[Rfam]
RNA sequence: GCCGACGGGAUGCCGGGUCGACUUAGGUGCACGGCAGGGAUGGAGGACCCAAGAGUGGUGGGACGACCAAGAGUAGUGCGGUCGGCCCUUGGGGUGAAGCCGUUGACAGCGGCCGGGCAACCUUCGCCUGCCCGAACCCGACAGGUCAUCCUUCACAGGCGGCUGACGAAGGGUUA
Numbered sequence: 001g002c003c004g005a006c007g008g009g010a011u012g013c014c015g016g017g018u019c020g021a022c023u024u025a026g027g028u029g030c031a032c033g034g035c036a037g038g039g040a041u042g043g044a045g046g047a048c049c050c051a052a053g054a055g056u057g058g059u060g061g062g063a064c065g066a067c068c069a070a071g072a073g074u075a076g077u078g079c080g081g082u083c084g085g086c087c088c089u090u091g092g093g094g095u096g097a098a099g100c101c102g103u104u105g106a107c108a109g110c111g112g113c114c115g116g117g118c119a120a121c122c123u124u125c126g127c128c129u130g131c132c133c134g135a136a137c138c139c140g141a142c143a144g145g146u147c148a149u150c151c152u153u154c155a156c157a158g159g160c161g162g163c164u165g166a167c168g169a170a171g172g173g174u175u176a
Stems, first nucleotide, its partner, number of pairs: 001160003041155005050091004092139003100112004115133004